[Rfam]
Record summary:
This 94-nucleotide sequence from Vulpes vulpes belongs to the Rfam family "mir-8799 microRNA precursor family". Gene Ontology terms of the family: RISC complex and miRNA-mediated post-transcriptional gene silencing. It scores 52 bits against the family's covariance model. The family is grouped with related families in Rfam's "mir-8791 microRNA precursor clan". Rfam 15.1 lists 20,638 matches to the family in 5 species.

RNA sequence: AGGGGGAGCACCGAAUCUUGGGCUGUGUCCCCCAGCGCCCUGGGCUCUGGGGCCUGCACCACUGGAAUUCCGCUCCUGGGCUGCGCAGCCCCCU
Numbered sequence: 001a002g003g004g005g006g007a008g009c010a011c012c013g014a015a016u017c018u019u020g021g022g023c024u025g026u027g028u029c030c031c032c033c034a035g036c037g038c039c040c041u042g043g044g045c046u047c048u049g050g051g052g053c054c055u056g057c058a059c060c061a062c063u064g065g066a067a068u069u070c071c072g073c074u075c076c077u078g079g080g081c082u083g084c085g086c087a088g089c090c091c092c093c094u
Stems, first nucleotide, its partner, number of pairs: 001094006011085001012083002017079002020076003024072002027069001028066002032064001035059001037057002042054001044053003